RNA sequence: AGUAAAGAUAGAGGCGCGAUUUUUAAGAGUACAACUAUUGAGAGGGCACAAUGAAGUAGUUGGAAAGGGGAAAUCGCCGAAGUGUUCGACAGAGCCAAACUGUUGAUUGCUGGGGUUGAGCAGAAUAUGCUCAGCACUGUCACAAAAUUUCAGGUAUGAAUUUGUGGAGGACUAUCAACAAA
Numbered sequence: 001a002g003u004a005a006a007g008a009u010a011g012a013g014g015c016g017c018g019a020u021u022u023u024u025a026a027g028a029g030u031a032c033a034a035c036u037a038u039u040g041a042g043a044g045g046g047c048a049c050a051a052u053g054a055a056g057u058a059g060u061u062g063g064a065a066a067g068g069g070g071a072a073a074u075c076g077c078c079g080a081a082g083u084g085u086u087c088g089a090c091a092g093a094g095c096c097a098a099a100c101u102g103u104u105g106a107u108u109g110c111u112g113g114g115g116u117u118g119a120g121c122a123g124a125a126u127a128u129g130c131u132c133a134g135c136a137c138u139g140u141c142a143c144a145a146a147a148u149u150u151c152a153g154g155u156a157u158g159a160a161u162u163u164g165u166g167g168a169g170g171a172c173u174a175u176c177a178a179c180a181a182a
Stems, first nucleotide, its partner, number of pairs: 007176005016077009032062008081111004086106007112138002115135008140167007
Dot-bracket structure: ......(((((....(((((((((.......((((((((...............))))))))......)))))))))...((((.(((((((.......))))))).))))((.((((((((.....)))))))).)).(((((((..............)))))))....)))))......

A member of the RNA family "Lysine riboswitch aptamer" from Carnobacterium antarcticum, 182 nucleotides long. The source organism's lineage runs through Bacteria, Bacillati, Bacilli, Lactobacillales and Carnobacterium. Pairs were carried over by alignment from the consensus structure, which is taken from published work. From the family's description: Riboswitches are metabolite binding domains within certain messenger RNAs that serve as precision sensors for their corresponding targets. The literature on the family includes a 2003 paper in Cell by Mandal et al., "Riboswitches Control Fundamental Biochemical Pathways in Bacillus subtilis and Other Bacteria".